[Rfam]
RNA sequence: ACCUGUCGCGGACGGCUGUGCGGGCCGGGUCGCGACACAAGACAGAACACCGUGUCACAGGAACAAAGUGGCACUUCAGGGCGUU
Numbered sequence: 001a002c003c004u005g006u007c008g009c010g011g012a013c014g015g016c017u018g019u020g021c022g023g024g025c026c027g028g029g030u031c032g033c034g035a036c037a038c039a040a041g042a043c044a045g046a047a048c049a050c051c052g053u054g055u056c057a058c059a060g061g062a063a064c065a066a067a068g069u070g071g072c073a074c075u076u077c078a079g080g081g082c083g084u085u
Base pairs, nucleotide, nucleotide: 004037005036006035007034008033009032010031011030013027014026015025016024052074053073054072055071056070057069058068

Shown here is an 85-nucleotide RNA sequence from Streptomyces sp. MA5143a, a member of the family "nrdJ RNA".